[Rfam]
Nucleotides: 168
Base pairs, nucleotide, nucleotide: 020054021053022052023051024050025049026048027047029045063094064093065092066091067090072083073082074081075080095110096109097108098107099106116158117157118156119155120154128145129144130143131142132141133140134139
Number, partner (000 for none) and nucleotide at each position: 001000a002000a003000u004000a005000a006000a007000a008000c009000a010000a011000a012000a013000g014000c015000g016000c017000c018000a019000g020054a021053a022052c023051u024050u025049a026048a027047a028000u029045c030000a031000u032000a033000a034000u035000c036000g037000g038000a039000a040000a041000a042000a043000a044000a045029g046000a047027u048026u049025u050024a051023a052022g053021u054020u055000g056000a057000c058000g059000a060000g061000g062000a063094c064093a065092g066091g067090g068000u069000u070000u071000a072083u073082c074081g075080a076000g077000u078000u079000u080075u081074c082073g083072g084000c085000g086000g087000a088000u089000g090067c091066c092065c093064u094063g095110c096109g097108g098107u099106g100000u101000a102000u103000c104000a105000c106099c107098a108097c109096c110095g111000a112000u113000a114000a115000a116158g117157a118156g119155c120154u121000u122000a123000c124000a125000a126000a127000a128145c129144u130143u131142c132141c133140a134139a135000g136000u137000g138000a139134u140133u141132g142131g143130g144129g145128g146000g147000a148000c149000a150000a151000a152000u153000a154120g155119g156118c157117u158116c159000g160000g161000g162000u163000g164000a165000u166000a167000a168000u
Rfam assigns this 168-nucleotide sequence from Crassaminicella thermophila to the family "glmS glucosamine-6-phosphate activated ribozyme aptamer".
Rfam links the family to the GO terms regulation of gene expression and catalytic activity.
NCBI's taxonomy places the organism under Bacteria, Clostridia, Eubacteriales, Clostridiaceae, Crassaminicella.
Pairs were carried over by alignment from the consensus structure, which is taken from published work.
The match comes from Rfam's covariance-model search (123 bits).